[Rfam]
RNA sequence: AGUGCCUCAUAAUGGCCAUAGCAGAAGCACUUACAUCACGGGCCCGUCGGAUUCUAAUGAAUCUGUGAAUUCCGCU
Numbered sequence: 001a002g003u004g005c006c007u008c009a010u011a012a013u014g015g016c017c018a019u020a021g022c023a024g025a026a027g028c029a030c031u032u033a034c035a036u037c038a039c040g041g042g043c044c045c046g047u048c049g050g051a052u053u054c055u056a057a058u059g060a061a062u063c064u065g066u067g068a069a070u071u072c073c074g075c076u
Stems, first nucleotide, its partner, number of pairs: 014044002016041002020076003024072003027039001048065007
Dot-bracket structure: .............[[[[..(((.((((...........)]].]]...(((((((....)))))))....))).)))
The family of this 76-nucleotide RNA from Alligator sinensis is "Mammalian CPEB3 ribozyme". The match comes from Rfam's covariance-model search (45 bits). The base pairs follow the family's consensus structure, which is taken from published work. On this family, see Salehi-Ashtiani et al., Science 2006: "A genomewide search for ribozymes reveals an HDV-like sequence in the human CPEB3 gene".